mir-4872 microRNA precursor family: a 76-nucleotide sequence from Branchiostoma floridae. The organism belongs to Branchiostoma, within Eukaryota. Rfam links the family to the GO terms RISC complex and miRNA-mediated post-transcriptional gene silencing. A search with the family's covariance model found it, with a score of 84 bits. The base pairs follow the family's consensus structure, which was predicted with RNAalifold.
[Rfam]
RNA sequence: UCACAUGUGGUGCCGGGGCAACUAAAACUCUGAGUUCUCUCUACUUCUGAGUUUUGUUUCCCCGGCUCUCUGUGGA
Numbered sequence: 001u002c003a004c005a006u007g008u009g010g011u012g013c014c015g016g017g018g019c020a021a022c023u024a025a026a027a028c029u030c031u032g033a034g035u036u037c038u039c040u041c042u043a044c045u046u047c048u049g050a051g052u053u054u055u056g057u058u059u060c061c062c063c064g065g066c067u068c069u070c071u072g073u074g075g076a
Base pairs, nucleotide, nucleotide: 001076002075004074005073006072007071009069010068012066013065014064015063016062017061020058021057022056024055025054026053027052028051029050030049032047033046034044035043